A member of the RNA family "mir-23 microRNA precursor family" from Varanus komodoensis, 74 nucleotides long. NCBI's taxonomy places the organism under Eukaryota, Gnathostomata, Euteleostomi, Sauria, Varanus. Pairs were carried over by alignment from the consensus structure, which was predicted with PFOLD. The match comes from Rfam's covariance-model search (69 bits).

RNA sequence: CGCCAGCUGGGGUUCCUGGUGAUGUGAUUUUAUCCCAUACUGAGAAUCACAUUGCCAGGGAUUUCCAACUGUCA
Number, nucleotide and partner (000 for none) at each position: 001c000002g073003c000004c071005a070006g069007c000008u000009g000010g066011g065012g062013u061014u060015c059016c058017u057018g056019g055020u054021g053022a052023u051024g050025u049026g048027a047028u046029u045030u044031u000032a000033u000034c000035c000036c000037a000038u000039a000040c000041u000042g000043a000044g030045a029046a028047u027048c026049a025050c024051a023052u022053u021054g020055c019056c018057a017058g016059g015060g014061a013062u012063u000064u000065c011066c010067a000068a000069c006070u005071g004072u000073c002074a000